[Rfam]
RNA: cspA thermoregulator
Nucleotides: 428
Base pairs, nucleotide, nucleotide: 004020006018007017008016009015026230027229029227030226031225040220042219043218044217045216046210047209054206055205056204057203061199063197064196066195067194068193072164073163076160088153089152090151091150092149094148096115098114099113100112127136128135129134166181167180168179233327234326235325236324237323238322246254247253257315258314259313260312261311262310264309265308266307267306268304269303271298272297273296274295275294276293279292280291281290332347333346334345336344337343338342348372349371351369352367353366354365355364356363377395379393380392381391402425403424404423405422406421407420408419409418410417411416
Number, partner (000 for none) and nucleotide at each position: 001000a002000u003000c004020g005000g006018u007017u008016u009015g010000a011000a012000g013000c014000a015009c016008a017007g018006a019000a020004c021000c022000u023000u024000u025000a026230a027229g028000c029227a030226g031225u032000u033000u034000a035000g036000u037000a038000g039000c040220g041000c042219a043218g044217u045216c046210c047209u048000c049000a050000a051000a052000g053000a054206g055205u056204u057203a058000u059000c060000a061199u062000a063197g064196a065000u066195a067194c068193c069000c070000u071000u072164c073163g074000a075000c076160g077000u078000g079000a080000u081000c082000u083000a084000c085000c086000u087000u088153c089152c090151u091150u092149u093000a094148u095000c096115g097000c098114u099113u100112u101000a102000a103000a104000a105000a106000u107000c108000u109000g110000u111000a112100a113099a114098a115096c116000a117000u118000u119000c120000c121000a122000a123000u124000u125000g126000c127136g128135c129134c130000g131000g132000a133000a134129g135128g136127c137000a138000a139000a140000u141000u142000u143000a144000a145000u146000u147000u148094a149092a150091a151090a152089g153088g154000u155000a156000a157000u158000a159000u160076c161000u162000a163073u164072g165000u166181c167180u168179a169000a170000c171000a172000a173000a174000a175000u176000g177000a178000c179168u180167g181166g182000u183000c184000u185000c186000g187000u188000a189000a190000a191000a192000u193068g194067g195066u196064u197063c198000a199061a200000c201000u202000c203057u204056g205055a206054c207000a208000a209047a210046g211000g212000c213000u214000u215000c216045g217044g218043c219042u220040u221000c222000a223000u224000c225031a226030c227029u228000c229027c230026u231000g232000a233327c234326g235325a236324u237323g238322g239000c240000u241000c242000a243000a244000a245000a246254g247253a248000c249000g250000u251000g252000u253247u254246c255000g256000u257315a258314c259313a260312c261311u262310u263000c264309u265308c266307u267306g268304c269303u270000a271298u272297c273296c274295a275294g276293a277000a278000c279292g280291a281290u282000g283000g284000c285000u286000a287000c288000a289000a290281g291280u292279c293276u294275c295274u296273g297272g298271a299000c300000g301000a302000a303269g304268g305000c306267c307266a308265g309264a310262a311261a312260g313259u314258g315257u316000c317000u318000u319000u320000c321000a322238c323237c324236a325235u326234c327233g328000a329000a330000a331000g332347u333346g334345g335000u336344g337343c338342u339000a340000a341000a342338g343337g344336c345334c346333c347332a348372g349371c350000u351369g352367c353366u354365g355364g356363u357000a358000a359000c360000g361000u362000a363356a364355c365354u366353a367352g368000c369351c370000u371349g372348u373000a374000a375000g376000g377395u378000u379393a380392g381391c382000g383000u384000u385000a386000g387000c388000a389000a390000a391381g392380c393379u394000a395377a396000g397000a398000a399000u400000u401000u402425a403424a404423a405422a406421a407420c408419c409418c410417g411416c412000c413000u414000c415000g416411g417410c418409g419408g420407g421406u422405u423404u424403u425402u426000u427000c428000g